The record is a 120-nucleotide RNA sequence from Neobacillus rhizophilus, which matches "ylbH leader" in Rfam. This family is a putative regulatory RNA structure that is found upstream of the ylbH gene in B. subtilis and related low GC Gram-positive bacteria. The literature on the family includes a 2004 paper in Proc Natl Acad Sci U S A by Barrick et al., "New RNA motifs suggest an expanded scope for riboswitches in bacterial genetic control".
[Rfam]
RNA sequence: AAGAAAAAAACCCUGCAAAAAUUUUGCAGGGUCCUUCUAAAUCCUGAUAUAGGACAGAAGGCAAAGGGAGAGGAGAAACCGGAGGAAGAACUUAUGGGGAAACGUAAGUCUUCUCCGCGG
Numbered sequence: 001a002a003g004a005a006a007a008a009a010a011c012c013c014u015g016c017a018a019a020a021a022u023u024u025u026g027c028a029g030g031g032u033c034c035u036u037c038u039a040a041a042u043c044c045u046g047a048u049a050u051a052g053g054a055c056a057g058a059a060g061g062c063a064a065a066g067g068g069a070g071a072g073g074a075g076a077a078a079c080c081g082g083a084g085g086a087a088g089a090a091c092u093u094a095u096g097g098g099g100a101a102a103c104g105u106a107a108g109u110c111u112u113c114u115c116c117g118c119g120g
Stems, first nucleotide, its partner, number of pairs: 011031009032068005042054005080117004085113004090109005
Dot-bracket structure: ..........(((((((((...)))))))))(((((.....(((((...))))).........)))))...........((((.((((.(((((..........)))))))))))))...
Rfam classes the family as a cis-regulatory leader.